[Rfam]
RNA sequence: CUCAUAAAUAGAGGCGCGGAUAAAUAGUGUAGUACAGGGAUGUUAAGGAGAAGAACCUUCAAUGCCCUGUAUAAAGGGUUUGUCUGCCGAAAGAUAUGAUGUGUUCUUGCGUCCUAUCUUGGAAAUAAAGUAUACAGCUUUAUUUUUGCCGUAUUUUACGGAGCGCUAUUUAUGUA
Numbered sequence: 001c002u003c004a005u006a007a008a009u010a011g012a013g014g015c016g017c018g019g020a021u022a023a024a025u026a027g028u029g030u031a032g033u034a035c036a037g038g039g040a041u042g043u044u045a046a047g048g049a050g051a052a053g054a055a056c057c058u059u060c061a062a063u064g065c066c067c068u069g070u071a072u073a074a075a076g077g078g079u080u081u082g083u084c085u086g087c088c089g090a091a092a093g094a095u096a097u098g099a100u101g102u103g104u105u106c107u108u109g110c111g112u113c114c115u116a117u118c119u120u121g122g123a124a125a126u127a128a129a130g131u132a133u134a135c136a137g138c139u140u141u142a143u144u145u146u147u148g149c150c151g152u153a154u155u156u157u158a159c160g161g162a163g164c165g166c167u168a169u170u171u172a173u174g175u176a
Base pairs, nucleotide, nucleotide: 006171007170008169009168010167011166016087017086018085019084020083021082022081023080024079032072033071034070035069036068037067038066039065091120092119093118094117095116096115098113099112100111101110102109121147122146123145124144125143126142127141128140129139130138131137149161150160151159152158153157
A member of the RNA family "Lysine riboswitch aptamer" from Clostridium amylolyticum, 176 nucleotides long. A search with the family's covariance model found it, with a score of 84 bits. From the family's description: Riboswitches are metabolite binding domains within certain messenger RNAs that serve as precision sensors for their corresponding targets. The family's consensus secondary structure is taken from published work. NCBI's taxonomy places the organism under Bacteria, Bacillati, Bacillota, Eubacteriales, Clostridium.